Rfam assigns this 115-nucleotide sequence from Criibacterium bergeronii to the family "FMN riboswitch aptamer (RFN element)". The base pairs follow the family's consensus structure, which is taken from published work. The RFN element is a highly conserved domain that is found frequently in the 5'-untranslated regions of prokaryotic mRNAs that encode for flavin mononucleotide (FMN) biosynthesis and transport proteins.
[Rfam]
RNA sequence: UAAAUUCUUCAGGGCAGGGUGAAAUUCCCUAUCGGCGGUAAAGUCCGCGAGCUUUGUGCAUGAUUUGGUGUAAUUCCAAAACCGACGGUUAUAGUCCGGAUGAGAGAAGAAAAUG
Numbered sequence: 001u002a003a004a005u006u007c008u009u010c011a012g013g014g015c016a017g018g019g020u021g022a023a024a025u026u027c028c029c030u031a032u033c034g035g036c037g038g039u040a041a042a043g044u045c046c047g048c049g050a051g052c053u054u055u056g057u058g059c060a061u062g063a064u065u066u067g068g069u070g071u072a073a074u075u076c077c078a079a080a081a082c083c084g085a086c087g088g089u090u091a092u093a094g095u096c097c098g099g100a101u102g103a104g105a106g107a108a109g110a111a112a113a114u115g
Stems, first nucleotide, its partner, number of pairs: 005111006017029003031095002033084002035048004043082002053058001064080005086098003